[Rfam]
RNA sequence: CCAGAUUGAUAAGCGCCAGAGCUUGCGUGAUGAAGGCUGAUGUACGUGCUGACUUAGAGUAGAGAGCAUGGACGAAGCUUCAUACGGAAAGCUGACGAGGUGAAGGUGUUCGAAAUUUCGGCGGGGACCUUCCGGUAUAUAGCGGCCAACCGAAAGCCGAUACGCAAAACGAUUGGGCGACCAAUCCGACAAACGUACGGCGGGCUGCAG
Numbered sequence: 001c002c003a004g005a006u007u008g009a010u011a012a013g014c015g016c017c018a019g020a021g022c023u024u025g026c027g028u029g030a031u032g033a034a035g036g037c038u039g040a041u042g043u044a045c046g047u048g049c050u051g052a053c054u055u056a057g058a059g060u061a062g063a064g065a066g067c068a069u070g071g072a073c074g075a076a077g078c079u080u081c082a083u084a085c086g087g088a089a090a091g092c093u094g095a096c097g098a099g100g101u102g103a104a105g106g107u108g109u110u111c112g113a114a115a116u117u118u119c120g121g122c123g124g125g126g127a128c129c130u131u132c133c134g135g136u137a138u139a140u141a142g143c144g145g146c147c148a149a150c151c152g153a154a155a156g157c158c159g160a161u162a163c164g165c166a167a168a169a170c171g172a173u174u175g176g177g178c179g180a181c182c183a184a185u186c187c188g189a190c191a192a193a194c195g196u197a198c199g200g201c202g203g204g205c206u207g208c209a210g
Base pairs, nucleotide, nucleotide: 020093021092022091023090024089026087028084102132103131104130105129106128110121111120112119113118133152134151135150136149156201157200158199159198161197162196171186172185173184174183175182176181
glmS glucosamine-6-phosphate activated ribozyme aptamer: a 210-nucleotide sequence from Paenibacillus sp. MY03. Rfam's curators write: This entry contains a glucosamine-6-phosphate activated ribozyme that is found in the mRNA for GlmS. GlmS is an enzyme that uses fructose-6-phosphate and glutamine to generate glucosamine-6-phosphate. Lineage of the source: Bacteria > Bacillati > Bacillota > Caryophanales > Paenibacillus. The match comes from Rfam's covariance-model search (66 bits). The family's consensus secondary structure is taken from published work.